Source information
The family of this 88-nucleotide RNA sequence from Danio rerio is "mir-135 microRNA precursor family". The family has 88 seed sequences and 2,125 matches in Rfam 15.1. The organism belongs to Danio, within Eukaryota.
RNA sequence: ACACUACUGUGCUUUAUGGCUUUCUAUUCCUAUGUGAUUUUGAUAUGAUGUAUCAUGUAGGGUUCAAAGCCAUUAGGUACAGAGUGGC
Numbered sequence: 001a002c003a004c005u006a007c008u009g010u011g012c013u014u015u016a017u018g019g020c021u022u023u024c025u026a027u028u029c030c031u032a033u034g035u036g037a038u039u040u041u042g043a044u045a046u047g048a049u050g051u052a053u054c055a056u057g058u059a060g061g062g063u064u065c066a067a068a069g070c071c072a073u074u075a076g077g078u079a080c081a082g083a084g085u086g087g088c
Base pairs, nucleotide, nucleotide: 002087005084007082008081009080010079011078012077013076014075016073017072018071019070020069021068022067023066026064028062029061030060031059032058033057034056035055036054037053